Rfam assigns this 85-nucleotide sequence to the family "tRNA". Gene Ontology term of the family: triplet codon-amino acid adaptor activity. Rfam's curators write: Transfer RNA (tRNA) molecules are approximately 80 nucleotides in length. It is one of the family's seed sequences.
RNA sequence: GCGGAUAUGAUGGAAUUGGUAGACAUGCCAGGUUUAGGUUCUGGUGACCAUAAUGUUCGUGGGGGUUCGAGUCCCUCUAUCCGUA
Numbered sequence: 001g002c003g004g005a006u007a008u009g010a011u012g013g014a015a016u017u018g019g020u021a022g023a024c025a026u027g028c029c030a031g032g033u034u035u036a037g038g039u040u041c042u043g044g045u046g047a048c049c050a051u052a053a054u055g056u057u058c059g060u061g062g063g064g065g066u067u068c069g070a071g072u073c074c075c076u077c078u079a080u081c082c083g084u085a
Base pairs, nucleotide, nucleotide: 001084002083003082004081005080006079007078010026011025012024028044029043030042031041032040061077062076063075064074065073